[Rfam]
RNA sequence: CAGAGAAGAAAGGCAGAGGUGAAGUAUUUUCAGGAUGCCUUUUGACGACUUGCCGCCGAACAUAUGUGAGGGAGGCAUUACCUUAA
Numbered sequence: 001c002a003g004a005g006a007a008g009a010a011a012g013g014c015a016g017a018g019g020u021g022a023a024g025u026a027u028u029u030u031c032a033g034g035a036u037g038c039c040u041u042u043u044g045a046c047g048a049c050u051u052g053c054c055g056c057c058g059a060a061c062a063u064a065u066g067u068g069a070g071g072g073a074g075g076c077a078u079u080a081c082c083u084u085a086a
Stems, first nucleotide, its partner, number of pairs: 008043006016028002019025001052076003056071002060067002